Record summary
This 162-nucleotide RNA sequence from Limnospira maxima belongs to the Rfam family "c-di-AMP riboswitch aptamer (ydaO/yuaA leader)". This family represents a conserved RNA structure found upstream of the ydaO and yuaA genes in Bacillus subtilis and related genes in other bacteria. The ydaO/yuaA element is thought to act as a genetic 'off' switch for the ydaO and yuaA genes in its native state. It is believed that the element may be triggered during osmotic shock leading to activation of ydaO, a predicted amino acid transporter gene, and members of the yuaA-yubG operon which code for KtrA and KtrB K+ transporters. A search with the family's covariance model found it, with a score of 70 bits. Rfam links the family to the GO terms regulation of gene expression and cyclic-di-AMP binding. Taxonomically the source falls in Limnospira maxima (Bacteria, Cyanobacteriota, Oscillatoriophycideae, Sirenicapillariaceae).
RNA sequence: UUCGAGCAGGUGCAGACGCGGUGAUGUGGUCGGAGCGGAGGAACCAAAUUUUUGGGGCUAAUCUCGCAAAGUGUUUCUGUCAACAACCGACAGAGAUAAAGAGAAGGGCAACUCUCAGCCCUAGCCCGUCAGCUAACUCCGUAGGCAUUGAGAGGAGGCUGA
Numbered sequence: 001u002u003c004g005a006g007c008a009g010g011u012g013c014a015g016a017c018g019c020g021g022u023g024a025u026g027u028g029g030u031c032g033g034a035g036c037g038g039a040g041g042a043a044c045c046a047a048a049u050u051u052u053u054g055g056g057g058c059u060a061a062u063c064u065c066g067c068a069a070a071g072u073g074u075u076u077c078u079g080u081c082a083a084c085a086a087c088c089g090a091c092a093g094a095g096a097u098a099a100a101g102a103g104a105a106g107g108g109c110a111a112c113u114c115u116c117a118g119c120c121c122u123a124g125c126c127c128g129u130c131a132g133c134u135a136a137c138u139c140c141g142u143a144g145g146c147a148u149u150g151a152g153a154g155g156a157g158g159c160u161g162a
Base pairs, nucleotide, nucleotide: 001034002033003032004031005030035142036141037140038139039138040137045054046053055127056126057125063103064102065101106121107120108119109118